A member of the RNA family "c-di-AMP riboswitch aptamer (ydaO/yuaA leader)" from Corynebacterium epidermidicanis, 156 nucleotides long. The source organism's lineage runs through Bacteria, Actinomycetota, Actinomycetes, Corynebacteriaceae and Corynebacterium. The base pairs follow the family's consensus structure. This family represents a conserved RNA structure found upstream of the ydaO and yuaA genes in Bacillus subtilis and related genes in other bacteria.
RNA sequence: UUCAUUCAUGUGCAGACUGGGGCGGGGAACCCACUUUGGGAACCAUUCCCUUGGGGUGAAGCCACGUAGAUUUCUCACAAGGAAGCUACUGGCCGGGCACUGUGAUCCUCCGCCCGAACCCGACAGCUAACCUCGCAGGCGUUUAAUAUGAGAGGA
Numbered sequence: 001u002u003c004a005u006u007c008a009u010g011u012g013c014a015g016a017c018u019g020g021g022g023c024g025g026g027g028a029a030c031c032c033a034c035u036u037u038g039g040g041a042a043c044c045a046u047u048c049c050c051u052u053g054g055g056g057u058g059a060a061g062c063c064a065c066g067u068a069g070a071u072u073u074c075u076c077a078c079a080a081g082g083a084a085g086c087u088a089c090u091g092g093c094c095g096g097g098c099a100c101u102g103u104g105a106u107c108c109u110c111c112g113c114c115c116g117a118a119c120c121c122g123a124c125a126g127c128u129a130a131c132c133u134c135g136c137a138g139g140c141g142u143u144u145a146a147u148a149u150g151a152g153a154g155g156a
Base pairs, nucleotide, nucleotide: 001021002020003019022136023135024134025133026132027131032053033052054121055120056119062092063091064090095115096114097113098112